A member of the RNA family "Small nucleolar RNA SNORA64/SNORA10 family" from Lanius ludovicianus, 138 nucleotides long. Rfam 15.1 lists 703 matches to the family in 311 species. The match comes from Rfam's covariance-model search (35 bits). This family belongs to the H/ACA class of small nucleolar RNAs (snoRNAs) which act as guides in the the modification of uridines to pseudouridines. This family includes the human snoRNAs U64 and ACA10 and mouse MBI-29. The family is grouped with related families in Rfam's "SNORA64 clan".
Nucleotides: 138
Stems, first nucleotide, its partner, number of pairs: 003067004008062001011059003018045008076128005082122003091115002095111005
Number, partner (000 for none) and nucleotide at each position: 001000a002000a003067u004066c005065u006064c007000c008062c009000a010000a011059u012058c013057u014000g015000c016000g017000c018045g019044a020043u021042u022041g023040c024039a025038c026000u027000u028000g029000u030000g031000u032000g033000c034000c035000a036000u037000a038025g039024u040023g041022u042021a043020a044019u045018u046000g047000u048000c049000g050000u051000a052000a053000c054000u055000g056000g057013a058012g059011a060000g061000a062008g063000a064006g065005a066004g067003a068000a069000a070000c071000c072000u073000g074000a075000g076128u077127u078126u079125u080124g081000u082122g083121g084120g085000u086000u087000c088000a089000u090000c091115a092114g093000a094000g095111a096110g097109a098108c099107c100000c101000u102000c103000c104000c105000a106000u107099g108098g109097u110096c111095u112000c113000c114092c115091u116000g117000g118000u119000u120084c121083u122082u123000u124080c125079a126078g127077a128076a129000u130000u131000c132000c133000a134000c135000a136000u137000u138000u